Shown here is a 215-nucleotide RNA sequence from Blastochloris tepida, a member of the family "Alphaproteobacterial sRNA ar45". The source organism's lineage runs through Bacteria, Pseudomonadati, Hyphomicrobiales, Blastochloridaceae and Blastochloris.
RNA sequence: GCCCAAUUUCGCACGUGCCUGUGGCCGCGUGCCGGUCGGUGGGCAUCCGGACAAGAGGCCGGACAGCCGCCCGGGGACCAAAGAUCGAGAGGCGCCUCUCCGGCGCCGUGUCUUCUCGGUUUCCCCGUCUAUCGACCGGCAGCUGGAGGCGAAACCAGCAAUUCCCUGCUCUCCGCAGGGGUACGCGGCUUGAAGCAACGACGUAGCGGGCUUUU
Numbered sequence: 001g002c003c004c005a006a007u008u009u010c011g012c013a014c015g016u017g018c019c020u021g022u023g024g025c026c027g028c029g030u031g032c033c034g035g036u037c038g039g040u041g042g043g044c045a046u047c048c049g050g051a052c053a054a055g056a057g058g059c060c061g062g063a064c065a066g067c068c069g070c071c072c073g074g075g076g077a078c079c080a081a082a083g084a085u086c087g088a089g090a091g092g093c094g095c096c097u098c099u100c101c102g103g104c105g106c107c108g109u110g111u112c113u114u115c116u117c118g119g120u121u122u123c124c125c126c127g128u129c130u131a132u133c134g135a136c137c138g139g140c141a142g143c144u145g146g147a148g149g150c151g152a153a154a155c156c157a158g159c160a161a162u163u164c165c166c167u168g169c170u171c172u173c174c175g176c177a178g179g180g181g182u183a184c185g186c187g188g189c190u191u192g193a194a195g196c197a198a199c200g201a202c203g204u205a206g207c208g209g210g211c212u213u214u215u
Base pairs, nucleotide, nucleotide: 001211002210003209004208009201010200011199016197017196018195023190024189025188026187027186028185029184030183038071039070040069041068042067046063047062048061049060050059079094083093096181097180098179101175102174103173